[Rfam]
RNA sequence: GUUGGUUGAAAAUCACCCUGGCUUUGGCCAUGGCUGUGGGUGAGAUUCCGCGCCUAGAGCCUCCAGGAGCCUCAGCUCACCUCCCAUUGCUCUGGUGUGGAGAGGUGAAACCCAGGCCCCGACAAGU
Numbered sequence: 001g002u003u004g005g006u007u008g009a010a011a012a013u014c015a016c017c018c019u020g021g022c023u024u025u026g027g028c029c030a031u032g033g034c035u036g037u038g039g040g041u042g043a044g045a046u047u048c049c050g051c052g053c054c055u056a057g058a059g060c061c062u063c064c065a066g067g068a069g070c071c072u073c074a075g076c077u078c079a080c081c082u083c084c085c086a087u088u089g090c091u092c093u094g095g096u097g098u099g100g101a102g103a104g105g106u107g108a109a110a111c112c113c114a115g116g117c118c119c120c121g122a123c124a125a126g127u
Stems, first nucleotide, its partner, number of pairs: 005051002008048003013043004020035004066120001069117004077108005085099003
This 127-nucleotide RNA sequence from Oryctolagus cuniculus belongs to the Rfam family "Small nucleolar RNA ACA64". The sequence is in the family's curated seed alignment. The literature on the family includes a 2006 paper in RNA by Schattner et al., "A computational screen for mammalian pseudouridylation guide H/ACA RNAs". Taxonomically the source falls in Oryctolagus (Eukaryota, Amniota, Theria, Glires). It is annotated as an H/ACA-box small nucleolar RNA. Gene Ontology terms of the family: nucleolus and RNA processing.